The family of this 111-nucleotide RNA from Acidocella aminolytica is "Guanidine-I riboswitch aptamer". The match comes from Rfam's covariance-model search (89 bits). Taxonomically the source falls in Acidocella aminolytica (Bacteria, Alphaproteobacteria, Acetobacterales, Acidocellaceae).

[Rfam]
RNA sequence: CGUAAAGGCUGCUAGGGUUCCGGCUGGGCAUUUGUCCGGUGGCUGGUCCGAGAGCAGCGGUCAUGCGGGAGACAUUCGCAUGAUGCACGGCGGGACAAAAGCCCGGGAGAG
Numbered sequence: 001c002g003u004a005a006a007g008g009c010u011g012c013u014a015g016g017g018u019u020c021c022g023g024c025u026g027g028g029c030a031u032u033u034g035u036c037c038g039g040u041g042g043c044u045g046g047u048c049c050g051a052g053a054g055c056a057g058c059g060g061u062c063a064u065g066c067g068g069g070a071g072a073c074a075u076u077c078g079c080a081u082g083a084u085g086c087a088c089g090g091c092g093g094g095a096c097a098a099a100a101g102c103c104c105g106g107g108a109g110a111g
Base pairs, nucleotide, nucleotide: 008058009057010056011055012054015049016048020046021045022043023040024039025038026037027036028035060084061083062082063081064080065079066078067077086106088109092104093103094102